[Rfam]
Rfam assigns this 80-nucleotide RNA sequence from Abrus precatorius to the family "small nucleolar RNA snoR114". It scores 52 bits against the family's covariance model. On this family, see Chen and Wu, Nucleic Acids Res 2009: "Mining small RNA sequencing data: a new approach to identify small nucleolar RNAs in Arabidopsis". The organism belongs to Abrus, within Eukaryota. The family has 24 seed sequences and 1,645 matches in Rfam 15.1. By type it is a C/D-box small nucleolar RNA.
RNA sequence: GAGUUAUGAGGAAAUUCUUGUGAUUGAUGGGUCAAUCACUCUCAUCUUCUAGUUAGAUGGAAUAAUCUGCAUCUGAGCUC
Numbered sequence: 001g002a003g004u005u006a007u008g009a010g011g012a013a014a015u016u017c018u019u020g021u022g023a024u025u026g027a028u029g030g031g032u033c034a035a036u037c038a039c040u041c042u043c044a045u046c047u048u049c050u051a052g053u054u055a056g057a058u059g060g061a062a063u064a065a066u067c068u069g070c071a072u073c074u075g076a077g078c079u080c
Stems, first nucleotide, its partner, number of pairs: 001080004